The record is a 111-nucleotide sequence from Ancylostoma duodenale, which matches "SL2 RNA" in Rfam. Its family is annotated with mRNA trans splicing, via spliceosome in the Gene Ontology. A search with the family's covariance model found it, with a score of 61 bits. This family represents SL2 RNA. SL2 RNA is involved in trans splicing in lower eukaryotes. Trans-splicing is a form of RNA processing. The acquisition of a spliced leader from a SL RNA is a intra-molecular reaction which precisely joins exons derived from separately transcribed RNAs. Approximately 25% of C. elegans genes are organised into polycistronic transcription units and the presence of SL2 on an mRNA is an indication the the gene is in an operon. The source organism's lineage runs through Eukaryota, Eumetazoa, Bilateria, Ancylostomatinae and Ancylostoma. Pairs were carried over by alignment from the consensus structure, which is taken from published work. It is annotated as a non-coding RNA gene.
RNA sequence: GGUUUUAACCCAGUAUCACAAGGUACUAAGGGGAUUCUGACCUGCCACGUGCGGCUGCGUCAAAAACCUCAAUUUUUGGAGCGCCUUUCCGGGGAUAUCCGGAAGGGCAAA
Number, nucleotide and partner (000 for none) at each position: 001g000002g000003u000004u000005u000006u000007a036008a035009c032010c031011c000012a000013g000014u028015a027016u000017c000018a024019c023020a000021a000022g000023g019024u018025a000026c000027u015028a014029a000030g000031g010032g009033g000034a000035u008036u007037c000038u062039g061040a060041c059042c057043u000044g055045c054046c053047a000048c000049g000050u000051g000052c000053g046054g045055c044056u000057g042058c000059g041060u040061c039062a038063a000064a000065a000066a000067c000068c000069u000070c000071a000072a000073u000074u000075u000076u000077u000078g000079g000080a000081g000082c000083g000084c000085c000086u109087u000088u107089c106090c105091g000092g000093g000094g100095a000096u000097a000098u000099c000100c094101g000102g000103a000104a000105g090106g089107g088108c000109a086110a000111a000